[Rfam]
Description
The family of this 59-nucleotide RNA sequence from Liparis tanakae is "Antizyme RNA frameshifting stimulation element". NCBI's taxonomy places the organism under Eukaryota, Gnathostomata, Osteoglossocephalai, Cottioidei, Liparis. The match comes from Rfam's covariance-model search (69 bits). The family's consensus secondary structure is taken from published work.

Nucleotides: 059
Base pairs, nucleotide, nucleotide: 007043008042009041010040011039014036015035016034017033018032025059026058027057028056029055030054
Number, partner (000 for none) and nucleotide at each position: 001000u002000g003000a004000u005000g006000c007043c008042c009041c010040u011039c012000u013000c014036c015035c016034a017033c018032c019000c020000c021000u022000g023000a024000a025059g026058a027057u028056c029055c030054c031000a032018g033017g034016u035015g036014g037000a038000a039011g040010a041009g042008g043007g044000a045000a046000u047000g048000g049000c050000a051000c052000a053000c054030g055029g056028g057027a058026u059025c
A reference for the family is Ivanov et al. (2004), "Identification of a new antizyme mRNA +1 frameshifting stimulatory pseudoknot in a subset of diverse invertebrates and its apparent absence in intermediate species", J Mol Biol. Rfam's curators write: This family represents a structural element which is found in antizyme mRNA and is known to promote frameshifting. Antizyme genes have have two partially overlapping open reading frames, the second, which encodes the functional protein requires +1 translational frameshifting. It is annotated as a frameshift element.